Shown here is a 158-nucleotide RNA sequence from Theobroma cacao, a member of the family "U12 minor spliceosomal RNA". It scores 66 bits against the family's covariance model. Rfam 15.1 lists 2,106 matches to the family in 1,170 species. The literature on the family includes a 1997 paper in Trends Biochem Sci by Tarn and Steitz, "Pre-mRNA splicing: the discovery of a new spliceosome doubles the challenge". The family's RNA type in Rfam is spliceosomal small nuclear RNA. The base pairs follow the family's consensus structure. Taxonomically the source falls in Theobroma (Eukaryota, Viridiplantae, Tracheophyta, Malvales). Rfam links the family to the GO terms U12 snRNP, pre-mRNA branch point binding and mRNA branch site recognition.

[Rfam]
RNA sequence: UCACCUUAAACUAAUGAGUAAGGAAAACAAAGCGAGCAGUGGGAACCGCUUGUAGCGCCCAACCUCAAAGGUGCGCAAGAAUUUGUGGAGGGAUAAUAGGCUGGCCGAGCGCUGACGCUGCGCUUACUUUGUGCAGAACUCACUCGAGCGGGCUUCCC
Numbered sequence: 001u002c003a004c005c006u007u008a009a010a011c012u013a014a015u016g017a018g019u020a021a022g023g024a025a026a027a028c029a030a031a032g033c034g035a036g037c038a039g040u041g042g043g044a045a046c047c048g049c050u051u052g053u054a055g056c057g058c059c060c061a062a063c064c065u066c067a068a069a070g071g072u073g074c075g076c077a078a079g080a081a082u083u084u085g086u087g088g089a090g091g092g093a094u095a096a097u098a099g100g101c102u103g104g105c106c107g108a109g110c111g112c113u114g115a116c117g118c119u120g121c122g123c124u125u126a127c128u129u130u131g132u133g134c135a136g137a138a139c140u141c142a143c144u145c146g147a148g149c150g151g152g153c154u155u156c157c158c
Stems, first nucleotide, its partner, number of pairs: 004023005032053006039046001055076004092158001098155005104149001107143001109141001111139001113137001119135005